RNA sequence: AGUAACUGAGGACGGAACGGGCAGCCGUCACCCCUUGCAAAAAGGUUAGGAGAUGUGGGAAAUGUCACCCCACCUUUACU
Numbered sequence: 001a002g003u004a005a006c007u008g009a010g011g012a013c014g015g016a017a018c019g020g021g022c023a024g025c026c027g028u029c030a031c032c033c034c035u036u037g038c039a040a041a042a043a044g045g046u047u048a049g050g051a052g053a054u055g056u057g058g059g060a061a062a063u064g065u066c067a068c069c070c071c072a073c074c075u076u077u078a079c080u
Stems, first nucleotide, its partner, number of pairs: 001080005008074001011029005020066004031050001033045004055073005